The record is a 106-nucleotide RNA from Thermoanaerobacter brockii, which matches "Glycine riboswitch aptamer" in Rfam. The match comes from Rfam's covariance-model search (62 bits). NCBI's taxonomy places the organism under Bacteria, Bacillati, Clostridia, Thermoanaerobacter, Thermoanaerobacter brockii.
[Rfam]
RNA sequence: AUGAAGAUAGCGAGAGAUAUCUUUGUAAAAAGAUAGCCGAAGGGGAAAUAUAAAGGCCCGCCAAGCCUUUAUAGAAGCUCUCAGGCAAAAGUAUCGCUAUCGGAUA
Numbered sequence: 001a002u003g004a005a006g007a008u009a010g011c012g013a014g015a016g017a018u019a020u021c022u023u024u025g026u027a028a029a030a031a032g033a034u035a036g037c038c039g040a041a042g043g044g045g046a047a048a049u050a051u052a053a054a055g056g057c058c059c060g061c062c063a064a065g066c067c068u069u070u071a072u073a074g075a076a077g078c079u080c081u082c083a084g085g086c087a088a089a090a091g092u093a094u095c096g097c098u099a100u101c102g103g104a105u106a
Base pairs, nucleotide, nucleotide: 006101007100008099009098010097011096012095013094019034020033021032022031036086037085038084039082040081043080044079045078049073050072051071052070053069054068055067056066057065
Dot-bracket structure: .....((((((((.....((((........)))).(((((..(((...(((((((((.......)))))))))....))))).))).......)))))))).....